[Rfam]
RNA sequence: GGUGGAGUGGCCGAGUGGUCUAAGGCGCUGGUUUAAGGCACCAGUCCGAAACAGGGCGUGGGUUCGAAUCCCACCUCCGCCA
Dot-bracket structure: (((((((..(((...........))).(((((.......))))).............(((((.......)))))))))))).
This 82-nucleotide RNA from Schistosoma bovis belongs to the Rfam family "tRNA". A search with the family's covariance model found it, with a score of 58 bits. NCBI's taxonomy places the organism under Eukaryota, Trematoda, Digenea, Schistosomatidae, Schistosoma. A reference for the family is Hou (1993), "The tertiary structure of tRNA and the development of the genetic code", Trends Biochem Sci. By type it is a transfer RNA.